About this RNA: Rfam assigns this 98-nucleotide sequence from Sanguibacter suaedae to the family "Glycine riboswitch aptamer".
RNA sequence: CGAACCAUGGCGGGAGAGCCAGGCCGUCCCGACGGCCGGGCGCCGAAGGAGCAAAUCCUCCCCGGGAAACUCUCAGGCCCCAGUACCGUCACGGCGAG
Numbered sequence: 001c002g003a004a005c006c007a008u009g010g011c012g013g014g015a016g017a018g019c020c021a022g023g024c025c026g027u028c029c030c031g032a033c034g035g036c037c038g039g040g041c042g043c044c045g046a047a048g049g050a051g052c053a054a055a056u057c058c059u060c061c062c063c064g065g066g067a068a069a070c071u072c073u074c075a076g077g078c079c080c081c082a083g084u085a086c087c088g089u090c091a092c093g094g095c096g097a098g
Stems, first nucleotide, its partner, number of pairs: 006093001008091006019040002022037005042078003045074002049072003056064001